Shown here is an 81-nucleotide RNA from Ceutorhynchus assimilis, a member of the family "mir-31 microRNA precursor family". Its Rfam clan is "mir-31 microRNA precursor family".

RNA sequence: GAUGGUAGAGUAGGCAAGAUGUCGGCAUAGCUGAAUGUAUUUGAUUUUCGGCUGUGUCUCAUCGAGCCACCUUGAGCCUUU
Numbered sequence: 001g002a003u004g005g006u007a008g009a010g011u012a013g014g015c016a017a018g019a020u021g022u023c024g025g026c027a028u029a030g031c032u033g034a035a036u037g038u039a040u041u042u043g044a045u046u047u048u049c050g051g052c053u054g055u056g057u058c059u060c061a062u063c064g065a066g067c068c069a070c071c072u073u074g075a076g077c078c079u080u081u
Base pairs, nucleotide, nucleotide: 006075008073009072010071013068014067015066018063019062020061021060024058025057026056027055028054029053030052031051